[Rfam]
RNA sequence: CCCACCGAGGAGCGUUGCAACCCGAAUCCACGACGCUGGAUUCCGGCCAGGCUCGGUGGCGGGAUUUCACUGUUCCAACGGCGCUCACUCACG
Numbered sequence: 001c002c003c004a005c006c007g008a009g010g011a012g013c014g015u016u017g018c019a020a021c022c023c024g025a026a027u028c029c030a031c032g033a034c035g036c037u038g039g040a041u042u043c044c045g046g047c048c049a050g051g052c053u054c055g056g057u058g059g060c061g062g063g064a065u066u067u068c069a070c071u072g073u074u075c076c077a078a079c080g081g082c083g084c085u086c087a088c089u090c091a092c093g
Base pairs, nucleotide, nucleotide: 002059003058004057005056006055007054008053021046022045024043025042026041027040028039029038030037

SAH (S-adenosyl-L-homocysteine) riboswitch aptamer: a 93-nucleotide RNA from Allochromatium vinosum. The match comes from Rfam's covariance-model search (63 bits). A reference for the family is Wang et al. (2008), "Riboswitches that sense S-adenosylhomocysteine and activate genes involved in coenzyme recycling", Mol Cell.